Shown here is a 30-nucleotide RNA sequence from Haloarcula marismortui, a member of the family "CRISPR RNA direct repeat element". Rfam 15.1 lists 2,265 matches to the family in 51 species.

RNA sequence: GUUACAGACGGACCCAUGGGCGGUUGAAGC
Numbered sequence: 001g002u003u004a005c006a007g008a009c010g011g012a013c014c015c016a017u018g019g020g021c022g023g024u025u026g027a028a029g030c
Base pairs, nucleotide, nucleotide: 011025012024013023014022